The record is a 205-nucleotide RNA sequence from Allobosea sp. LC85, which matches "Bradyrhizobiaceae sRNA BjrC174" in Rfam.
A search with the family's covariance model found it, with a score of 62 bits.
Lineage of the source: Bacteria > Pseudomonadati > Alphaproteobacteria > Alloboseaceae > Allobosea.
A reference for the family is Madhugiri et al. (2012), "Small RNAs of the Bradyrhizobium/Rhodopseudomonas lineage and their analysis", RNA Biol.

RNA sequence: AUCACGCCUUCGUCAGCCGCGCCGCAUUUUCGCCGCGAACGCGCCAAGCGAUGGCCAAGUUGCCGGGCUCAACUCCCCUCGUUGCCUCGACGGCCCGGCCUCAUGGAGUUCCGGAUACGUCAGCCCCCCAGCCCCCCGGGCUCGGUGAGGUCGGGCCUAUCGGUUCGAGGCUACCUAACGGCUGGCGGUUUCCGCUGGCCGUUUU
Numbered sequence: 001a002u003c004a005c006g007c008c009u010u011c012g013u014c015a016g017c018c019g020c021g022c023c024g025c026a027u028u029u030u031c032g033c034c035g036c037g038a039a040c041g042c043g044c045c046a047a048g049c050g051a052u053g054g055c056c057a058a059g060u061u062g063c064c065g066g067g068c069u070c071a072a073c074u075c076c077c078c079u080c081g082u083u084g085c086c087u088c089g090a091c092g093g094c095c096c097g098g099c100c101u102c103a104u105g106g107a108g109u110u111c112c113g114g115a116u117a118c119g120u121c122a123g124c125c126c127c128c129c130a131g132c133c134c135c136c137c138g139g140g141c142u143c144g145g146u147g148a149g150g151u152c153g154g155g156c157c158u159a160u161c162g163g164u165u166c167g168a169g170g171c172u173a174c175c176u177a178a179c180g181g182c183u184g185g186c187g188g189u190u191u192c193c194g195c196u197g198g199c200c201g202u203u204u205u
Stems, first nucleotide, its partner, number of pairs: 037175001038052001041049002084171007092157011106143004111139004123132002179201010